The record is a 127-nucleotide RNA sequence from Delftia acidovorans, which matches "SAH (S-adenosyl-L-homocysteine) riboswitch aptamer" in Rfam. Taxonomically the source falls in Delftia acidovorans (Bacteria, Pseudomonadati, Pseudomonadota, Delftia). A reference for the family is Wang et al. (2008), "Riboswitches that sense S-adenosylhomocysteine and activate genes involved in coenzyme recycling", Mol Cell.

[Rfam]
RNA sequence: UGGCCCGAGGAGCGUUGCAGCGCGGCACCCGCCCAUCCGUACACCGGAUCGCGUGCCGCGUCAGGCUUGGGCCAGGUGCAGGUUCCCGGCCGGACCGCGCCCACGGUGCCAACGACGCUCACCUGUU
Numbered sequence: 001u002g003g004c005c006c007g008a009g010g011a012g013c014g015u016u017g018c019a020g021c022g023c024g025g026c027a028c029c030c031g032c033c034c035a036u037c038c039g040u041a042c043a044c045c046g047g048a049u050c051g052c053g054u055g056c057c058g059c060g061u062c063a064g065g066c067u068u069g070g071g072c073c074a075g076g077u078g079c080a081g082g083u084u085c086c087c088g089g090c091c092g093g094a095c096c097g098c099g100c101c102c103a104c105g106g107u108g109c110c111a112a113c114g115a116c117g118c119u120c121a122c123c124u125g126u127u
Base pairs, nucleotide, nucleotide: 002073003072004071005070006069007068008067021060022059023058024057025056026055027054028053